[Rfam]
RNA sequence: AUUCCGGUUGAUCCUGCCGGAGGCCAUUGCUCUCGGGGUCCGCCUUAGCCAUGCUAGUCGUACGGGCUCGGACCCGUGGCGAACAGCUCAGUAACACGUGGCCAAACUACCCUCGAGACCGGGAUAACCUCGGAAAACUGAGGCUAAUCCCGGAUAGCGGUCCCAGGCUGGAAUGCGGGGAUCGCGAAAGGCUCCGGCGCUCGAGGACGUGGCUGCGGCCGAUUAGGUAGACGGUGAGGUAACGGCUCACCGUGCCGAUAAUCGGUACGGGGCAUGAGAGUGCGAGCGCGGAGACGGUGUCUGAGACAAGACACCGGGCCCUACGGGGCGCAGCAGGCGCGAAACGUUUACACUGCGCGAGAGCGCGAUAACGGGACCCCGAGCGCGAGGGCAUAUCGCCCUCGCUUUUCCGGACCGUAAUGUGGUCCGGGAACAAGGGCUGGGCAAGACCGGUGCCAGCCGCCGCGGUAAUACCGGCAGCCCGAGUGAUGGCCGCGAUUACUG
Numbered sequence: 001a002u003u004c005c006g007g008u009u010g011a012u013c014c015u016g017c018c019g020g021a022g023g024c025c026a027u028u029g030c031u032c033u034c035g036g037g038g039u040c041c042g043c044c045u046u047a048g049c050c051a052u053g054c055u056a057g058u059c060g061u062a063c064g065g066g067c068u069c070g071g072a073c074c075c076g077u078g079g080c081g082a083a084c085a086g087c088u089c090a091g092u093a094a095c096a097c098g099u100g101g102c103c104a105a106a107c108u109a110c111c112c113u114c115g116a117g118a119c120c121g122g123g124a125u126a127a128c129c130u131c132g133g134a135a136a137a138c139u140g141a142g143g144c145u146a147a148u149c150c151c152g153g154a155u156a157g158c159g160g161u162c163c164c165a166g167g168c169u170g171g172a173a174u175g176c177g178g179g180g181a182u183c184g185c186g187a188a189a190g191g192c193u194c195c196g197g198c199g200c201u202c203g204a205g206g207a208c209g210u211g212g213c214u215g216c217g218g219c220c221g222a223u224u225a226g227g228u229a230g231a232c233g234g235u236g237a238g239g240u241a242a243c244g245g246c247u248c249a250c251c252g253u254g255c256c257g258a259u260a261a262u263c264g265g266u267a268c269g270g271g272g273c274a275u276g277a278g279a280g281u282g283c284g285a286g287c288g289c290g291g292a293g294a295c296g297g298u299g300u301c302u303g304a305g306a307c308a309a310g311a312c313a314c315c316g317g318g319c320c321c322u323a324c325g326g327g328g329c330g331c332a333g334c335a336g337g338c339g340c341g342a343a344a345c346g347u348u349u350a351c352a353c354u355g356c357g358c359g360a361g362a363g364c365g366c367g368a369u370a371a372c373g374g375g376a377c378c379c380c381g382a383g384c385g386c387g388a389g390g391g392c393a394u395a396u397c398g399c400c401c402u403c404g405c406u407u408u409u410c411c412g413g414a415c416c417g418u419a420a421u422g423u424g425g426u427c428c429g430g431g432a433a434c435a436a437g438g439g440c441u442g443g444g445c446a447a448g449a450c451c452g453g454u455g456c457c458a459g460c461c462g463c464c465g466c467g468g469u470a471a472u473a474c475c476g477g478c479a480g481c482c483c484g485a486g487u488g489a490u491g492g493c494c495g496c497g498a499u500u501a502c503u504g
Base pairs, nucleotide, nucleotide: 004020005019006018007017008016022494023493024492025491026490027489028488029487030486031485033382034381035380036379037378038377039376040375041374042340048338049337050336052335053334054333057080058079059078062077063076064075065074066073087293088292089291097217098216099215100214101213102212103211106210107209111206112205113204114203115202116201117200119153120152121151122150128143129142130141131140132139133138158184159183160182161181162180163179164178167176168175191198192197219265220264221263226256227255228254231253232252233251234250235249236248237247238246268290269289271287272283273282274281275280295316296315297314298313299312300311318329319328320327321326346372348371349370350369354367355366356365357364358363385405386404387403388402389401390400391399392398410430411429412428413427414426415425416424437483438482439481440480441479442478450477451476452475453474459466460465

A member of the RNA family "Archaeal small subunit ribosomal RNA" from Halobacteriales archaeon YIM 93590, 504 nucleotides of a longer RNA. Its family is annotated with structural constituent of ribosome and ribosome in the Gene Ontology. Pairs were carried over by alignment from the consensus structure, which is taken from published work. The sequence is in the family's curated seed alignment. The family has 86 seed sequences and 709 matches in Rfam 15.1.